[Rfam]
RNA sequence: CACGCGGUGUAGGGAGAAAGUUCCUAUAGCGGCGUGGCUUCAUUUUGAGGU
Numbered sequence: 001c002a003c004g005c006g007g008u009g010u011a012g013g014g015a016g017a018a019a020g021u022u023c024c025u026a027u028a029g030c031g032g033c034g035u036g037g038c039u040u041c042a043u044u045u046u047g048a049g050g051u
Stems, first nucleotide, its partner, number of pairs: 001036005007030002011025005
RNA: L31-Gammaproteobacteria ribosomal protein leader